[Rfam]
RNA sequence: CCUGGCCCUCACGGACCAGGCUACGUUCUGCCGGGACGUUGUCCCU
Numbered sequence: 001c002c003u004g005g006c007c008c009u010c011a012c013g014g015a016c017c018a019g020g021c022u023a024c025g026u027u028c029u030g031c032c033g034g035g036a037c038g039u040u041g042u043c044c045c046u
Stems, first nucleotide, its partner, number of pairs: 001020005007014002033045005
RNA: Acido-Lenti-1 RNA
Organism: Chlamydiales bacterium SCGC AG-110-P3